The family of this 167-nucleotide sequence from Pseudomonas sp. HPB0071 is "Manganese Mn2+ riboswitch aptamer (yybP-ykoY)".
RNA sequence: CGCGCCGUCCUAGGGGAGUAGUCUCUGGCCAUCAGCGCCAGGCGUCCGUCAACAUACUUGGUCCUCGACCAUGGCGUUCGCGACCUGCGGGUUUGACAAGACCUAUGACAUGCAGCCUUUACCCGGGGUGGGAAGGCAUGCAUGUCAUUUGUCUAAUUAAUGCCCGC
Numbered sequence: 001c002g003c004g005c006c007g008u009c010c011u012a013g014g015g016g017a018g019u020a021g022u023c024u025c026u027g028g029c030c031a032u033c034a035g036c037g038c039c040a041g042g043c044g045u046c047c048g049u050c051a052a053c054a055u056a057c058u059u060g061g062u063c064c065u066c067g068a069c070c071a072u073g074g075c076g077u078u079c080g081c082g083a084c085c086u087g088c089g090g091g092u093u094u095g096a097c098a099a100g101a102c103c104u105a106u107g108a109c110a111u112g113c114a115g116c117c118u119u120u121a122c123c124c125g126g127g128g129u130g131g132g133a134a135g136g137c138a139u140g141c142a143u144g145u146c147a148u149u150u151g152u153c154u155a156a157u158u159a160a161u162g163c164c165c166g167c
Base pairs, nucleotide, nucleotide: 026040027039028038042081043080044079047076048075049074050073051072059071060070061069062068063067087167088166
Dot-bracket structure: .........................(((.........))).(((..(((((.......(((((...))))))))))..))).....((.............................................................................))
Gene Ontology term of the family: manganese ion binding.
Rfam 15.1 lists 1,126 matches to the family in 1,062 species.
Taxonomically the source falls in Pseudomonas (Bacteria, Pseudomonadati, Pseudomonadota, Pseudomonadales).
For this family Rfam cites "Novel small RNA-encoding genes in the intergenic regions of Escherichia coli" (Argaman et al., Curr Biol, 2001).
A search with the family's covariance model found it, with a score of 55 bits.
The pairing is the family consensus, mapped onto this sequence.